[Rfam]
RNA sequence: UACUCCCUCCGUCCCGAAAUAACCAAACCUCGUAGGACAUGUCACAUCCUAGUACGAGGUUGGUUUAUUUUGGGACGGAGGGAGUAU
Numbered sequence: 001u002a003c004u005c006c007c008u009c010c011g012u013c014c015c016g017a018a019a020u021a022a023c024c025a026a027a028c029c030u031c032g033u034a035g036g037a038c039a040u041g042u043c044a045c046a047u048c049c050u051a052g053u054a055c056g057a058g059g060u061u062g063g064u065u066u067a068u069u070u071u072g073g074g075a076c077g078g079a080g081g082g083a084g085u086a087u
Stems, first nucleotide, its partner, number of pairs: 001086022024063001026061009035049003

Shown here is an 87-nucleotide sequence from Oryza sativa, a member of the family "MIR1862 microRNA precursor family".